[Rfam]
RNA: Small nucleolar RNA SNORA64/SNORA10 family
Organism: Carlito syrichta
RNA sequence: ACUCUUUUCAACUCUGCAUAAUUCCUCUUGGCUUCACCUGUACAACUUUCAUAAUGAGGGGAGAGAGAAAAGAUCUCCUGGAGCCCUCAGAAUGGCCUUACUAUGGCCUCUCUUCCCUUGAGGGAUACGAUAUGU
Numbered sequence: 001a002c003u004c005u006u007u008u009c010a011a012c013u014c015u016g017c018a019u020a021a022u023u024c025c026u027c028u029u030g031g032c033u034u035c036a037c038c039u040g041u042a043c044a045a046c047u048u049u050c051a052u053a054a055u056g057a058g059g060g061g062a063g064a065g066a067g068a069a070a071a072g073a074u075c076u077c078c079u080g081g082a083g084c085c086c087u088c089a090g091a092a093u094g095g096c097c098u099u100a101c102u103a104u105g106g107c108c109u110c111u112c113u114u115c116c117c118u119u120g121a122g123g124g125a126u127a128c129g130a131u132a133u134g135u
Stems, first nucleotide, its partner, number of pairs: 002067005008062002012059002015056002020047001022045002027040001076124004081119003089113003094108004